[Rfam]
This 107-nucleotide RNA from Thermoanaerobacteraceae bacterium SP2 belongs to the Rfam family "TPP riboswitch aptamer (THI element)". The source organism's lineage runs through Bacteria, Bacillati, Clostridia, Thermoanaerobacterales and Thermoanaerobacteraceae. Rfam links the family to the GO term thiamine pyrophosphate binding. The family's consensus secondary structure is taken from published work. For this family Rfam cites "Comparative genomics of thiamin biosynthesis in procaryotes. New genes and regulatory mechanisms" (Rodionov et al., J Biol Chem, 2002).
RNA sequence: AAACAAAAACAGGGGAGCUGGAUUGACCGGCUGAGAGGGAACUUGUGGUUCCGACCCUUACACCUGAUCUGGGUAAUGCCAGCGGAGGGAGAAGCAAAAUAUUUAUU
Numbered sequence: 001a002a003a004c005a006a007a008a009a010c011a012g013g014g015g016a017g018c019u020g021g022a023u024u025g026a027c028c029g030g031c032u033g034a035g036a037g038g039g040a041a042c043u044u045g046u047g048g049u050u051c052c053g054a055c056c057c058u059u060a061c062a063c064c065u066g067a068u069c070u071g072g073g074u075a076a077u078g079c080c081a082g083c084g085g086a087g088g089g090a091g092a093a094g095c096a097a098a099a100u101a102u103u104u105a106u107u
Stems, first nucleotide, its partner, number of pairs: 010091001011058004017031005038052005063088003069082004
Background
Vitamin B(1) in its active form thiamin pyrophosphate (TPP) is an essential coenzyme that is synthesised by coupling of pyrimidine and thiazole moieties in bacteria.